[Rfam]
RNA sequence: CUUUCUACACAGGUUGGGAUCGGUUGCAAUGCUGUGUUUCUGGUAUGGUAUUGCACUUGUCCCGGCCUGUUGAGUUUGU
Numbered sequence: 001c002u003u004u005c006u007a008c009a010c011a012g013g014u015u016g017g018g019a020u021c022g023g024u025u026g027c028a029a030u031g032c033u034g035u036g037u038u039u040c041u042g043g044u045a046u047g048g049u050a051u052u053g054c055a056c057u058u059g060u061c062c063c064g065g066c067c068u069g070u071u072g073a074g075u076u077u078g079u
Stems, first nucleotide, its partner, number of pairs: 005074002009070006016063005022057003026054009
Background
Shown here is a 79-nucleotide sequence from Chrysochloris asiatica, a member of the family "mir-92 microRNA precursor family". NCBI's taxonomy places the organism under Eukaryota, Chordata, Amniota, Chrysochloridae, Chrysochloris. This family represents the microRNA precursor mir-92. Its family is annotated with miRNA-mediated post-transcriptional gene silencing and RISC complex in the Gene Ontology. The family has 23 seed sequences and 1,347 matches in Rfam 15.1.